[Rfam]
Rfam assigns this 565-nucleotide part of an RNA to the family "Bacterial large subunit ribosomal RNA". The literature on the family includes a 2002 paper in BMC Bioinformatics by Cannone et al., "The comparative RNA web (CRW) site: an online database of comparative sequence and structure information for ribosomal, intron, and other RNAs".

RNA sequence: UAUUCUGCGAAACCUAUUUAGGUAGGAUCUAUAUUUGGAUUAUAGCAAGUAGUGCUCUGCUUUUAGCAAUCCAUUUGUUAUAUAACAAAUGGGAUUGCAUUGAAAAGUGCAAUUUAUAUUUAAUGGGGGGGUUAUUAUGAUUCUACCCACUGAAGGCAAUCAAACCAAUGGUUAUAAAUCCAAAAUAUAGGGUCAGACUAUGGGUGCUAAGGCCGAUAGUCGAAUGGGGAAGAGCCCAGAAUAGUAACUAAGGUCCCUAAAUAAAUACUAAGUGAAUAUAAGGUAGUGUCGUAUAGAAAACAUCCAUUAUGUAGGCUUGGAGGCAGCAAUCAUUUAGAGAAAGCGUAAAUGCUCAAUGGUCUUUUUUUAAUAUAUGAUGCACCAAUAAUUUAACGGGUCUAAAGUAUUUUACCGAUGUUCUAUCUGCAAAAUAAUAUUAUAUUCUAUAAUAAAUAGGGUAAAAGGUUCUCAACGAACCGUUAUAAAAAUUUGCAGGGUAGCAGAACAUACUAUAAAUGGAAUGAAGGGUAUUUUUUAAUUACCUUGACAUAAUAGUAGGGAUUAU
Number, nucleotide and partner (000 for none) at each position: 001u000002a000003u505004u504005c503006u502007g501008c500009g000010a000011a000012a000013c026014c025015u024016a023017u022018u000019u000020a000021g000022g017023u016024a015025g014026g013027a000028u192029c190030u189031a188032u187033a186034u185035u184036u000037g000038g180039a179040u178041u176042a175043u174044a173045g172046c171047a000048a000049g000050u000051a000052g165053u162054g161055c000056u000057c000058u158059g157060c156061u000062u154063u153064u152065a151066g000067c000068a000069a000070u000071c000072c000073a000074u000075u000076u000077g000078u000079u000080a000081u000082a000083u000084a000085a000086c000087a000088a000089a000090u000091g000092g000093g000094a000095u000096u000097g000098c000099a000100u000101u000102g000103a000104a000105a000106a000107g000108u000109g000110c000111a000112a000113u000114u000115u000116a000117u000118a000119u000120u000121u000122a000123a000124u000125g000126g000127g000128g000129g000130g000131g000132u000133u000134a000135u000136u000137a000138u000139g000140a000141u000142u000143c000144u000145a000146c000147c000148c000149a000150c000151u065152g064153a063154a062155g000156g060157c059158a058159a000160u000161c054162a053163a000164a000165c052166c000167a000168a000169u000170g000171g046172u045173u044174a043175u042176a041177a000178a040179u039180c038181c000182a000183a000184a035185a034186u033187a032188u031189a030190g029191g000192g028193u000194c000195a000196g221197a220198c219199u218200a217201u216202g000203g214204g213205u212206g000207c000208u000209a000210a000211g000212g205213c204214c203215g000216a201217u200218a199219g198220u197221c196222g000223a000224a000225u000226g237227g236228g235229g000230a000231a000232g000233a000234g000235c228236c227237c226238a000239g000240a000241a423242u422243a421244g420245u000246a419247a418248c417249u000250a000251a000252g413253g412254u411255c000256c000257c000258u000259a000260a000261a410262u000263a409264a408265a407266u406267a405268c404269u000270a000271a000272g000273u000274g000275a000276a000277u000278a000279u000280a000281a000282g383283g382284u381285a000286g380287u379288g378289u377290c376291g375292u374293a373294u372295a371296g000297a000298a000299a000300a000301c000302a000303u000304c359305c358306a357307u356308u000309a333310u332311g331312u000313a000314g000315g327316c326317u000318u000319g000320g000321a000322g000323g000324c000325a000326g316327c315328a000329a000330u000331c311332a310333u309334u338335u000336a000337g000338a334339g354340a000341a000342a000343g352344c351345g000346u000347a000348a000349a000350u000351g344352c343353u000354c339355a000356a307357u306358g305359g304360u000361c000362u000363u000364u000365u000366u000367u000368u000369a000370a000371u295372a294373u293374a292375u291376g290377a289378u288379g287380c286381a284382c283383c282384a000385a000386u000387a000388a000389u000390u000391u000392a000393a000394c000395g000396g000397g000398u000399c000400u000401a000402a000403a000404g268405u267406a266407u265408u264409u263410u261411a254412c253413c252414g000415a000416u000417g248418u247419u246420c244421u243422a242423u241424c495425u494426g493427c492428a491429a490430a489431a000432u000433a000434a000435u000436a000437u000438u000439a000440u000441a000442u000443u000444c000445u000446a000447u000448a000449a000450u000451a000452a000453a000454u000455a000456g000457g000458g000459u000460a000461a000462a000463a000464g000465g000466u000467u000468c000469u000470c000471a000472a000473c000474g000475a000476a000477c000478c000479g000480u000481u000482a000483u000484a000485a000486a000487a000488a000489u430490u429491u428492g427493c426494a425495g424496g000497g000498u000499a000500g008501c007502a006503g005504a004505a003506c560507a000508u557509a556510c555511u554512a553513u552514a000515a000516a550517u549518g548519g000520a000521a000522u000523g000524a000525a000526g544527g543528g542529u541530a540531u000532u538533u537534u000535u000536u000537a533538a532539u000540u530541a529542c528543c527544u526545u000546g000547a000548c518549a517550u516551a000552a513553u512554a511555g510556u509557a508558g000559g000560g506561a000562u000563u000564a000565u000

Source information
A search with the family's covariance model found it, with a score of 927 bits.